[Rfam]
RNA sequence: AACAUCCCCGCGGGAGAGACUGGGACUGGUUUUGGCCAGACCCGGCGCCGAAGGCGCAACCGCCCCGGAAACGCUCAGGCAAACGGACCGCGUGGGAACU
Numbered sequence: 001a002a003c004a005u006c007c008c009c010g011c012g013g014g015a016g017a018g019a020c021u022g023g024g025a026c027u028g029g030u031u032u033u034g035g036c037c038a039g040a041c042c043c044g045g046c047g048c049c050g051a052a053g054g055c056g057c058a059a060c061c062g063c064c065c066c067g068g069a070a071a072c073g074c075u076c077a078g079g080c081a082a083a084c085g086g087a088c089c090g091c092g093u094g095g096g097a098a099c100u
Stems, first nucleotide, its partner, number of pairs: 006095002009092005020045004047080003050076002054074003060068002
Dot-bracket structure: .....((.(((((......((((..................)))).(((((..(((...((.....))...))))).))).......))))).)).....